[Rfam]
RNA sequence: UUUGUUUAAAUCAUUCUGGUCCACACUUUGAAAAUUGAACUCACACAAAGUGGUGGGACAUACAUUGAUUUCAUCCAA
Numbered sequence: 001u002u003u004g005u006u007u008a009a010a011u012c013a014u015u016c017u018g019g020u021c022c023a024c025a026c027u028u029u030g031a032a033a034a035u036u037g038a039a040c041u042c043a044c045a046c047a048a049a050g051u052g053g054u055g056g057g058a059c060a061u062a063c064a065u066u067g068a069u070u071u072c073a074u075c076c077a078a
Stems, first nucleotide, its partner, number of pairs: 001078002004075001006073001008071006015064001017062002021056003024052007
Source information
Shown here is a 78-nucleotide sequence from Medicago truncatula, a member of the family "MIR5269 microRNA precursor family". NCBI's taxonomy places the organism under Eukaryota, Viridiplantae, Magnoliopsida, Papilionoideae, Medicago.